[Rfam]
RNA sequence: GUCAUACUACGGUGCAAUCAGGGAAAAAGUAAACGAUGACCCUCAAGGAACUCUAGGCUAAAAUGCGUAUCAAAAUGCAAAACCGAUCUUGGCUUGGGCUCCGUUCCGAGUCAGGUUUCUUU
Numbered sequence: 001g002u003c004a005u006a007c008u009a010c011g012g013u014g015c016a017a018u019c020a021g022g023g024a025a026a027a028a029g030u031a032a033a034c035g036a037u038g039a040c041c042c043u044c045a046a047g048g049a050a051c052u053c054u055a056g057g058c059u060a061a062a063a064u065g066c067g068u069a070u071c072a073a074a075a076u077g078c079a080a081a082a083c084c085g086a087u088c089u090u091g092g093c094u095u096g097g098g099c100u101c102c103g104u105u106c107c108g109a110g111u112c113a114g115g116u117u118u119c120u121u122u
Base pairs, nucleotide, nucleotide: 001040002039003038004037005036010035011034014030015029041048042047057071059069060068088115089114090113091112092111093110094109095108096107097106098105

The record is a 122-nucleotide sequence, which matches "Enterobacteria greA leader" in Rfam.
A search with the family's covariance model found it, with a score of 118 bits.
It is annotated as a cis-regulatory leader.